[Rfam]
Description
The family of this 88-nucleotide sequence from Streptomyces hoynatensis is "ZMP/ZTP riboswitch aptamer (pfl RNA motif)". Taxonomically the source falls in Streptomyces (Bacteria, Bacillati, Kitasatosporales, Streptomycetaceae). Rfam links the family to the GO terms one-carbon metabolic process and regulation of purine nucleotide biosynthetic process.
RNA sequence: GCCGCGGGCCGUGACUGGCGCUACGAGGUGGAGCACCACCGGGGAGCGGCCCGGCGAUCCGCCACUGCCGUGCGCCUGGGCGUCCCGC
Numbered sequence: 001g002c003c004g005c006g007g008g009c010c011g012u013g014a015c016u017g018g019c020g021c022u023a024c025g026a027g028g029u030g031g032a033g034c035a036c037c038a039c040c041g042g043g044g045a046g047c048g049g050c051c052c053g054g055c056g057a058u059c060c061g062c063c064a065c066u067g068c069c070g071u072g073c074g075c076c077u078g079g080g081c082g083u084c085c086c087g088c
Stems, first nucleotide, its partner, number of pairs: 005053008015043002017076005028039004066082004